[Rfam]
RNA: Small nucleolar RNA SNORA55
Organism: Nyctiprogne leucopyga
RNA sequence: GCACCGAAACUUUCCCAUUCCUUACUGUGCAGUGUGGGUCUGGGGAUACAUGGUGCUGACAGAAAAGCAGAGUAAAUCCAGACAAGUGACUCUCACUCACUGAGUUCCUGUCUCUACACCUCUGCAACAGUG
Number, nucleotide and partner (000 for none) at each position: 001g056002c055003a054004c053005c052006g000007a000008a000009a000010c000011u000012u046013u045014c044015c043016c042017a041018u000019u000020c038021c037022u000023u000024a000025c000026u000027g000028u000029g000030c000031a000032g000033u000034g000035u000036g000037g021038g020039u000040c000041u017042g016043g015044g014045g013046a012047u000048a000049c000050a000051u000052g005053g004054u003055g002056c001057u000058g000059a000060c000061a000062g000063a000064a000065a000066a000067g125068c124069a123070g122071a121072g120073u000074a000075a000076a000077u000078c000079c000080a113081g112082a111083c110084a109085a000086g107087u000088g000089a000090c000091u000092c104093u103094c102095a000096c000097u000098c000099a000100c000101u000102g094103a093104g092105u000106u000107c086108c000109u084110g083111u082112c081113u080114c000115u000116a000117c000118a000119c000120c072121u071122c070123u069124g068125c067126a000127a000128c000129a000130g000131u000132g000